[Rfam]
RNA sequence: GGCUGGUCCGAAGGUAGUGGGUUAUCUUCAUUUACAUGUUACUCUAGCUUGCAGUUAACUUUCCCACUACUAUCAUUGACUAGCUAUUU
Numbered sequence: 001g002g003c004u005g006g007u008c009c010g011a012a013g014g015u016a017g018u019g020g021g022u023u024a025u026c027u028u029c030a031u032u033u034a035c036a037u038g039u040u041a042c043u044c045u046a047g048c049u050u051g052c053a054g055u056u057a058a059c060u061u062u063c064c065c066a067c068u069a070c071u072a073u074c075a076u077u078g079a080c081u082a083g084c085u086a087u088u089u
Base pairs, nucleotide, nucleotide: 001085002084003083004082005081006080007079008078010077011076014073015072016068017067018066019065020064021063026054027053030050
The family of this 89-nucleotide RNA from Polypterus senegalus is "Y RNA". Pairs were carried over by alignment from the consensus structure, which is taken from published work. By type it is a non-coding RNA gene. The literature on the family includes a 2000 paper in Nucleic Acids Res by Teunissen et al., "Conserved features of Y RNAs: a comparison of experimentally derived secondary structures". The source organism's lineage runs through Eukaryota, Teleostomi, Actinopterygii, Polypteriformes and Polypterus.